This 82-nucleotide RNA belongs to the Rfam family "Twister_sister_ribozyme".
Gene Ontology term of the family: catalytic activity.
The literature on the family includes a 2015 paper in Nat Chem Biol by Weinberg et al., "New classes of self-cleaving ribozymes revealed by comparative genomics analysis".
RNA sequence: ACAACCCGCAAGGCCGACGCACAACGCGCCGCUGGUGCAAGCCCAGCCGCCCCCACACGGGGCGGGCGCUCAUGGGUACAAG
Numbered sequence: 001a002c003a004a005c006c007c008g009c010a011a012g013g014c015c016g017a018c019g020c021a022c023a024a025c026g027c028g029c030c031g032c033u034g035g036u037g038c039a040a041g042c043c044c045a046g047c048c049g050c051c052c053c054c055a056c057a058c059g060g061g062g063c064g065g066g067c068g069c070u071c072a073u074g075g076g077u078a079c080a081a082g
Stems, first nucleotide, its partner, number of pairs: 004077004013067003018028003031047004048064006